[Rfam]
A member of the RNA family "Guanidine-II riboswitch aptamer (mini-ykkC)" from Paraburkholderia monticola, 47 nucleotides long. Rfam's curators write: Simpler in structure and has fewer highly conserved nucleotide positions than the ykkC-yxkD leader. Despite this each of its two stem-loop structures directly bind free guanidine. Therefore, mini-ykkC RNA motif represents a distinct class of guanidine-sensing RNAs. Its crystal structure was also determined. A reference for the family is Weinberg et al. (2007), "Identification of 22 candidate structured RNAs in bacteria using the CMfinder comparative genomics pipeline", Nucleic Acids Res.
RNA sequence: GGCCGUGGACGACCACGGCCGGUCAUUCCCACGGCGGGACGGCCCGC
Numbered sequence: 001g002g003c004c005g006u007g008g009a010c011g012a013c014c015a016c017g018g019c020c021g022g023u024c025a026u027u028c029c030c031a032c033g034g035c036g037g038g039a040c041g042g043c044c045c046g047c
Base pairs, nucleotide, nucleotide: 001020002019003018004017005016006015007014008013034047035046036045037044038043

The organism belongs to Paraburkholderia, within Bacteria.